[Rfam]
RNA: HDV ribozyme from F. prausnitzii
Organism: Rodentolepis nana
RNA sequence: AGUGCGCGAUAGACUCGCCUCUACGUGGUGCACCCUGGGCAACGUAUACUCAUACGGCAAAGAAGUCUGU
Numbered sequence: 001a002g003u004g005c006g007c008g009a010u011a012g013a014c015u016c017g018c019c020u021c022u023a024c025g026u027g028g029u030g031c032a033c034c035c036u037g038g039g040c041a042a043c044g045u046a047u048a049c050u051c052a053u054a055c056g057g058c059a060a061a062g063a064a065g066u067c068u069g070u
Base pairs, nucleotide, nucleotide: 001036002035004033006031007030017029018028019027043056044055045054046053047052